Rfam assigns this 118-nucleotide RNA sequence to the family "Betaproteobacteria-1 RNA". Pairs were carried over by alignment from the consensus structure, which is taken from published work. The family's RNA type in Rfam is small RNA.

RNA sequence: CGCUGAAUCGGACGCGCACUGGCGGUAGCGAUUCAGGGACACCUCUACUACGGGAUAGAUGCUGAGACAGAGGAAUGGGUGGCGAAGUGAGCGCCCUUGCAUCGAACGGCUGACGGGU
Number, nucleotide and partner (000 for none) at each position: 001c038002g000003c036004u035005g034006a033007a032008u031009c030010g029011g000012a000013c000014g000015c000016g000017c000018a000019c000020u000021g000022g000023c000024g000025g051026u050027a049028g048029c010030g009031a008032u007033u006034c005035a004036g003037g000038g001039a000040c000041a000042c073043c072044u071045c070046u069047a000048c028049u027050a026051c025052g000053g000054g000055a000056u000057a000058g000059a102060u101061g100062c099063u000064g000065a000066g000067a000068c000069a046070g045071a044072g043073g042074a000075a098076u000077g096078g095079g094080u093081g000082g000083c000084g000085a000086a000087g114088u113089g000090a111091g110092c109093g080094c079095c078096c077097u000098u075099g062100c061101a060102u059103c000104g000105a000106a000107c000108g000109g092110c091111u090112g000113a088114c087115g000116g000117g000118u000